[Rfam]
RNA sequence: AAUCAAUAAUGACCAAAUUUGUUCAUCAGUAGCAUUUAACUGCUUCCAGGUGAUUGAUUCACUUAUUGUUAAAA
Numbered sequence: 001a002a003u004c005a006a007u008a009a010u011g012a013c014c015a016a017a018u019u020u021g022u023u024c025a026u027c028a029g030u031a032g033c034a035u036u037u038a039a040c041u042g043c044u045u046c047c048a049g050g051u052g053a054u055u056g057a058u059u060c061a062c063u064u065a066u067u068g069u070u071a072a073a074a
Base pairs, nucleotide, nucleotide: 023053024052025051026050027049031044032043033042034041
RNA: Small nucleolar RNA U2-19